RNA: small nucleolar RNA snoR134
Organism: Solanum commersonii
RNA sequence: CUGCACGUAGCCUCCCGGGCUCAUCUGAUUUUUAUUUUUUACAUGAAGUUAGAAGCCCCAAAGCUCGUGCUAUAAGUUUUUUGCCGUUUAGUGUUGCAGUAUUAGCCCUUUUGUACCUUAAUCCAUGGCUUAUCUGUGUCAAAUUAACGGCUAAAUCC
Numbered sequence: 001c002u003g004c005a006c007g008u009a010g011c012c013u014c015c016c017g018g019g020c021u022c023a024u025c026u027g028a029u030u031u032u033u034a035u036u037u038u039u040u041a042c043a044u045g046a047a048g049u050u051a052g053a054a055g056c057c058c059c060a061a062a063g064c065u066c067g068u069g070c071u072a073u074a075a076g077u078u079u080u081u082u083g084c085c086g087u088u089u090a091g092u093g094u095u096g097c098a099g100u101a102u103u104a105g106c107c108c109u110u111u112u113g114u115a116c117c118u119u120a121a122u123c124c125a126u127g128g129c130u131u132a133u134c135u136g137u138g139u140c141a142a143a144u145u146a147a148c149g150g151c152u153a154a155a156u157c158c
Base pairs, nucleotide, nucleotide: 003070004069005068006067007066010064011063017058018057019056020055021054022052025048026047083151084150085149086148087147088146092141093140095138096137097136098135099134105129106128107127